[Rfam]
Rfam assigns this 139-nucleotide RNA sequence from Clostridium grantii to the family "Group II catalytic intron D1-D4-4". Rfam links the family to the GO term Group II intron splicing. The base pairs follow the family's consensus structure. Group II introns are found in rRNA, tRNA and mRNA of organelles in fungi, plants and protists, and also in mRNA in bacteria. Lineage of the source: Bacteria > Bacillati > Eubacteriales > Clostridiaceae > Clostridium grantii.

RNA sequence: UAACCGGGGUAGGACCGGUAGUAAGAAAAGGUAGUACUUACUUAGCUAGGAUGGAGGCAUGGAAAGAAAUUGAAAUGUCUAAGCCUAUCGACAAAAAUCUGGGUAAGCCAGGUGAGCAACUUAGAAGGCUGUAAUGAGA
Numbered sequence: 001u002a003a004c005c006g007g008g009g010u011a012g013g014a015c016c017g018g019u020a021g022u023a024a025g026a027a028a029a030g031g032u033a034g035u036a037c038u039u040a041c042u043u044a045g046c047u048a049g050g051a052u053g054g055a056g057g058c059a060u061g062g063a064a065a066g067a068a069a070u071u072g073a074a075a076u077g078u079c080u081a082a083g084c085c086u087a088u089c090g091a092c093a094a095a096a097a098u099c100u101g102g103g104u105a106a107g108c109c110a111g112g113u114g115a116g117c118a119a120c121u122u123a124g125a126a127g128g129c130u131g132u133a134a135u136g137a138g139a
Base pairs, nucleotide, nucleotide: 020042021041022040023039024038050089051088052087053086054085055080056079057078058077059076060075064071065070097113098112099111100110101109102108116132117131118130